[Rfam]
RNA sequence: AUGAUGGUUGGGGGAGAGUAAUUGUGUAUUUUUUAGUACAUACAAUUCACCGAAGGAGUUAUACUCUCAGGUAUCGAGACUUCAACCGGACG
Numbered sequence: 001a002u003g004a005u006g007g008u009u010g011g012g013g014g015a016g017a018g019u020a021a022u023u024g025u026g027u028a029u030u031u032u033u034u035a036g037u038a039c040a041u042a043c044a045a046u047u048c049a050c051c052g053a054a055g056g057a058g059u060u061a062u063a064c065u066c067u068c069a070g071g072u073a074u075c076g077a078g079a080c081u082u083c084a085a086c087c088g089g090a091c092g
Stems, first nucleotide, its partner, number of pairs: 006087008020047008049072003052068002056066003
Rfam assigns this 92-nucleotide sequence from Pseudobacteroides cellulosolvens to the family "Glycine riboswitch aptamer". NCBI's taxonomy places the organism under Bacteria, Bacillota, Clostridia, Pseudobacteroides, Pseudobacteroides cellulosolvens. This family represents the bacterial glycine riboswitch.